[Rfam]
Nucleotides: 067
Stems, first nucleotide, its partner, number of pairs: 004064002010058001012056001015053003020049002023046003027042003
Number, partner (000 for none) and nucleotide at each position: 001000a002000c003000a004064a005063c006000a007000u008000u009000c010058g011000a012056a013000c014000c015053g016052u017051c018000g019000g020049u021048c022000u023046a024045c025044c026000c027042a028041g029040c030000a031000a032000u033000a034000a035000c036000a037000u038000a039000c040029g041028c042027u043000u044025g045024g046023u047000u048021g049020a050000a051017g052016a053015u054000c055000u056012u057000c058010c059000c060000u061000u062000c063005g064004u065000c066000g067000u
The record is a 67-nucleotide RNA from Bombyx mori, which matches "mir-2774 microRNA precursor family" in Rfam. For this family Rfam cites "MicroRNAs of Bombyx mori identified by Solexa sequencing" (Liu et al., BMC Genomics, 2010). The base pairs follow the family's consensus structure, which was predicted with RNAalifold. The match comes from Rfam's covariance-model search (70 bits).